[Rfam]
RNA sequence: AUUCCUGAGGAGCGCUGCGACGACUUCCUCCGCGGCGCAUGCGCCGCGCGGUUCGCCAGGCUCAGGAAACCUUGUUCAGGCGUUGCUCCGUGCAGCGCCACAGCAACGGCGCUCACCUCUG
Dot-bracket structure: .(((((((............(((.((.......................)).)))......))))))).....................................................
Annotation:
The family of this 121-nucleotide RNA from Bordetella ansorpii is "SAH (S-adenosyl-L-homocysteine) riboswitch aptamer". The source organism's lineage runs through Bacteria, Pseudomonadati, Burkholderiales, Alcaligenaceae and Bordetella. Pairs were carried over by alignment from the consensus structure, which is taken from published work. It scores 49 bits against the family's covariance model.